A member of the RNA family "mir-1305 microRNA precursor family" from Oryctolagus cuniculus, 81 nucleotides long.
The match comes from Rfam's covariance-model search (64 bits).
The source organism's lineage runs through Eukaryota, Opisthokonta, Teleostomi, Eutheria and Oryctolagus.
RNA sequence: AAGAUCCUGCUGUUCCUACUGUCAGUUUUAACAUUAUUGUAAUGAUACAUUUAAACUGUAAUGGAAGAGACAGCAGGAUUU
Numbered sequence: 001a002a003g004a005u006c007c008u009g010c011u012g013u014u015c016c017u018a019c020u021g022u023c024a025g026u027u028u029u030a031a032c033a034u035u036a037u038u039g040u041a042a043u044g045a046u047a048c049a050u051u052u053a054a055a056c057u058g059u060a061a062u063g064g065a066a067g068a069g070a071c072a073g074c075a076g077g078a079u080u081u
Stems, first nucleotide, its partner, number of pairs: 003080012016067002019064004024059001027055005035047004